[Rfam]
The family of this 46-nucleotide RNA from Labeo rohita is "Histone 3' UTR stem-loop". The mRNAs of metazoan histone genes lack a poly-A tail. 3' end processing occurs at a site between a highly conserved stem-loop (modelled by this family) and a purine rich region around 20 nts downstream (the histone downstream element, or HDE). Pairs were carried over by alignment from the consensus structure, which is taken from published work.
RNA sequence: CCAACGGCUCUUUUAAGAGCCACCCAUGUUUUCAUUCAAAGAGCUU
Numbered sequence: 001c002c003a004a005c006g007g008c009u010c011u012u013u014u015a016a017g018a019g020c021c022a023c024c025c026a027u028g029u030u031u032u033c034a035u036u037c038a039a040a041g042a043g044c045u046u
Stems, first nucleotide, its partner, number of pairs: 006021006